Notes: The record is an 88-nucleotide sequence from Medicago truncatula, which matches "MIR5298 microRNA precursor family" in Rfam. The family's consensus secondary structure was predicted with RNAalifold. Taxonomically the source falls in Medicago (Eukaryota, Viridiplantae, Embryophyta, Papilionoideae).
RNA sequence: UGUUUUCUUCUUCUUUUUUUGGAAUUUUUUUGGGAUUCUUGUUGUUGAAGGUUGAUGGAGAUGAUAUGAAGAUGAAAAAGAGGAGAAG
Numbered sequence: 001u002g003u004u005u006u007c008u009u010c011u012u013c014u015u016u017u018u019u020u021g022g023a024a025u026u027u028u029u030u031u032g033g034g035a036u037u038c039u040u041g042u043u044g045u046u047g048a049a050g051g052u053u054g055a056u057g058g059a060g061a062u063g064a065u066a067u068g069a070a071g072a073u074g075a076a077a078a079a080g081a082g083g084a085g086a087a088g
Stems, first nucleotide, its partner, number of pairs: 005082005011076003015072005034053004039048002